Nucleotides: 057
Stems, first nucleotide, its partner, number of pairs: 019037001022034004
Number, partner (000 for none) and nucleotide at each position: 001000c002000c003000a004000u005000g006000a007000a008000c009000u010000u011000u012000g013000u014000a015000a016000c017000g018000c019037g020000c021000a022034c023033a024032u025031u026000a027000c028000u029000u030000a031025g032024a033023u034022g035000c036000a037019c038000u039000u040000u041000a042000g043000a044000a045000a046000g047000u048000g049000a050000u051000g052000u053000a054000g055000g056000g057000g
Rfam assigns this 57-nucleotide RNA sequence from Kingdonia uniflora to the family "Plastid-ndhJ 3UTR RNA". Plastid ndhJ is a non-coding RNA (ncRNA) present in plastids.